RNA: ffh sRNA
RNA sequence: CGGUCUCAGGAUCGACAUCAGUCAGCGAGUUUCGCCCACUGGUGUUAAUUGCG
Numbered sequence: 001c002g003g004u005c006u007c008a009g010g011a012u013c014g015a016c017a018u019c020a021g022u023c024a025g026c027g028a029g030u031u032u033c034g035c036c037c038a039c040u041g042g043u044g045u046u047a048a049u050u051g052c053g
Stems, first nucleotide, its partner, number of pairs: 016044007025035004